[Rfam]
RNA sequence: UUGCAAUGAUGACUUCUUAGGACACAUUUGGGUUGCCCAUGAAAAUACAUUAAGAUCAAAUAUGAGCAAC
Numbered sequence: 001u002u003g004c005a006a007u008g009a010u011g012a013c014u015u016c017u018u019a020g021g022a023c024a025c026a027u028u029u030g031g032g033u034u035g036c037c038c039a040u041g042a043a044a045a046u047a048c049a050u051u052a053a054g055a056u057c058a059a060a061u062a063u064g065a066g067c068a069a070c
Stems, first nucleotide, its partner, number of pairs: 001069004
RNA: Small nucleolar RNA SNORD58